[Rfam]
About this RNA:
Rfam assigns this 252-nucleotide RNA from Trifolium subterraneum to the family "MIR2655 microRNA precursor family". It scores 134 bits against the family's covariance model. Lineage of the source: Eukaryota > Tracheophyta > Fabales > Fabaceae > Trifolium.
RNA sequence: CCCUUAUCUUUUAAAAGUUUCAAGUUGGUCCCUUAUCUUUAUUUUAGGUUUCAAGUUGGUCCCUUCCGUCAAUUUUUUAACUAUUUCCGUUAAAUUUGGACACGUGACAAACUAAUUUGGACACGUGGCACACUUGGACAUAUGACAUGUGUCCAAAUUUAACGGUAACAAUACAAAAUUUGACGGAAGGGACCAACUUGAAACCUAAAAAAAAGGUAAGGGACCAAAUUGAAACUUUUAAAAGAUAAUGGA
Numbered sequence: 001c002c003c004u005u006a007u008c009u010u011u012u013a014a015a016a017g018u019u020u021c022a023a024g025u026u027g028g029u030c031c032c033u034u035a036u037c038u039u040u041a042u043u044u045u046a047g048g049u050u051u052c053a054a055g056u057u058g059g060u061c062c063c064u065u066c067c068g069u070c071a072a073u074u075u076u077u078u079a080a081c082u083a084u085u086u087c088c089g090u091u092a093a094a095u096u097u098g099g100a101c102a103c104g105u106g107a108c109a110a111a112c113u114a115a116u117u118u119g120g121a122c123a124c125g126u127g128g129c130a131c132a133c134u135u136g137g138a139c140a141u142a143u144g145a146c147a148u149g150u151g152u153c154c155a156a157a158u159u160u161a162a163c164g165g166u167a168a169c170a171a172u173a174c175a176a177a178a179u180u181u182g183a184c185g186g187a188a189g190g191g192a193c194c195a196a197c198u199u200g201a202a203a204c205c206u207a208a209a210a211a212a213a214a215g216g217u218a219a220g221g222g223a224c225c226a227a228a229u230u231g232a233a234a235c236u237u238u239u240a241a242a243a244g245a246u247a248a249u250g251g252a
Stems, first nucleotide, its partner, number of pairs: 002250001004248005023229001025227001027225003031221010042210002045207003